[Rfam]
RNA sequence: AGUUUUCAGUUUGCAGCCUAACUUAAAGGCUGAUGGCUGGUGAUUUUUCAAUCACCAGCCU
Numbered sequence: 001a002g003u004u005u006u007c008a009g010u011u012u013g014c015a016g017c018c019u020a021a022c023u024u025a026a027a028g029g030c031u032g033a034u035g036g037c038u039g040g041u042g043a044u045u046u047u048u049c050a051a052u053c054a055c056c057a058g059c060c061u
Stems, first nucleotide, its partner, number of pairs: 014032005035060010
Dot-bracket structure: .............(((((.........)))))..((((((((((......)))))))))).

The record is a 61-nucleotide RNA sequence from Providencia stuartii, which matches "Pseudomonas sRNA P26" in Rfam. Rfam describes the family as follows. This small RNA (sRNA) was computationally identified in the genome of the opportunistic pathogen Pseudomonas aeruginosa and its expression verified by northern blot analysis. NCBI's taxonomy places the organism under Bacteria, Pseudomonadota, Gammaproteobacteria, Morganellaceae, Providencia. Pairs were carried over by alignment from the consensus structure, which was predicted with RNAalifold.